[Rfam]
Nucleotides: 079
Base pairs, nucleotide, nucleotide: 001079003076004075011036012035016031017030019028020027021026034065040071041070042069044068045067046066047063048062049061
Number, partner (000 for none) and nucleotide at each position: 001079c002000c003076u004075g005000u006000a007000a008000a009000a010000g011036g012035c013000a014000a015000a016031c017030c018000c019028g020027c021026c022000g023000c024000g025000a026021g027020g028019c029000u030017g031016g032000g033000a034065c035012g036011c037000a038000a039000a040071g041070c042069u043000u044068c045067c046066g047063g048062u049061c050000c051000u052000g053000g054000c055000g056000u057000c058000c059000a060000g061049g062048a063047u064000a065034g066046c067045g068044g069042g070041g071040c072000c073000g074000c075004c076003a077000u078000c079001g